[Rfam]
RNA sequence: CAGAACAGAACACACACGGAUCUGUGUUCAGCGAUCCCGUUCAUGGAGGGUGCGGCUUCGGCUGUUAUUUCUUUGUGUUUCGGUUGAACGCUGGACAGUUCGACGACUUAAGGAGCCAUUCAUCUUGUGGAUGGUUUUUGCACUUCCGGUCGACAGAUCUCAGAUUAAAGGUUGGCGCUGGGUGUUCACUCGGGUCUUGAGCUCCCUUGUUUUCGAACUUGGUGAGCUCGGCUGGAGUUCCUGGUUGCUGACGGCGUCAUAUUCCUACUCCCUUCACCGAAUUGGCCGUCGGUCACUGAGGUUAGGGAAAAACCAUGACCUGCCAACAUUA
Numbered sequence: 001c002a003g004a005a006c007a008g009a010a011c012a013c014a015c016a017c018g019g020a021u022c023u024g025u026g027u028u029c030a031g032c033g034a035u036c037c038c039g040u041u042c043a044u045g046g047a048g049g050g051u052g053c054g055g056c057u058u059c060g061g062c063u064g065u066u067a068u069u070u071c072u073u074u075g076u077g078u079u080u081c082g083g084u085u086g087a088a089c090g091c092u093g094g095a096c097a098g099u100u101c102g103a104c105g106a107c108u109u110a111a112g113g114a115g116c117c118a119u120u121c122a123u124c125u126u127g128u129g130g131a132u133g134g135u136u137u138u139u140g141c142a143c144u145u146c147c148g149g150u151c152g153a154c155a156g157a158u159c160u161c162a163g164a165u166u167a168a169a170g171g172u173u174g175g176c177g178c179u180g181g182g183u184g185u186u187c188a189c190u191c192g193g194g195u196c197u198u199g200a201g202c203u204c205c206c207u208u209g210u211u212u213u214c215g216a217a218c219u220u221g222g223u224g225a226g227c228u229c230g231g232c233u234g235g236a237g238u239u240c241c242u243g244g245u246u247g248c249u250g251a252c253g254g255c256g257u258c259a260u261a262u263u264c265c266u267a268c269u270c271c272c273u274u275c276a277c278c279g280a281a282u283u284g285g286c287c288g289u290c291g292g293u294c295a296c297u298g299a300g301g302u303u304a305g306g307g308a309a310a311a312a313c314c315a316u317g318a319c320c321u322g323c324c325a326a327c328a329u330u331a
Base pairs, nucleotide, nucleotide: 018160019159020158021157022156023155024154025153026096027095028094029093030092031091033089035087036086037083038082039081042077043076045074046073047072048071049070053064054063055062056061104152105151106150107149108148111139112138113137115135116134117133171248172247177245178244179243180242181241182240193233194232195231196230199229200228201227202226203225204224205222206221253324254323255322256319257318258317259316260315269308270307271306272305273304276302277301278300284294285293286292287291
RNA: A. fumigatus sRNA Afu_309
Organism: Aspergillus niger